[Rfam]
RNA sequence: GGCCGUGUGCCCGAGUGGUUGAGGGGACCGCCUGCAAAGCGGUGCACGCGGGUUCGAUUCCCGCCAUGGCCU
Numbered sequence: 001g002g003c004c005g006u007g008u009g010c011c012c013g014a015g016u017g018g019u020u021g022a023g024g025g026g027a028c029c030g031c032c033u034g035c036a037a038a039g040c041g042g043u044g045c046a047c048g049c050g051g052g053u054u055c056g057a058u059u060c061c062c063g064c065c066a067u068g069g070c071c072u
Base pairs, nucleotide, nucleotide: 001071002070003069004068005067006066007065010025011024012023027043028042029041030040031039048064049063050062051061052060

Background: Shown here is a 72-nucleotide RNA sequence from Streptomyces rubellomurinus, a member of the family "tRNA". It scores 59 bits against the family's covariance model. Lineage of the source: Bacteria > Actinomycetota > Actinomycetes > Streptomycetaceae > Streptomyces. Transfer RNA (tRNA) molecules are approximately 80 nucleotides in length. It is annotated as a transfer RNA.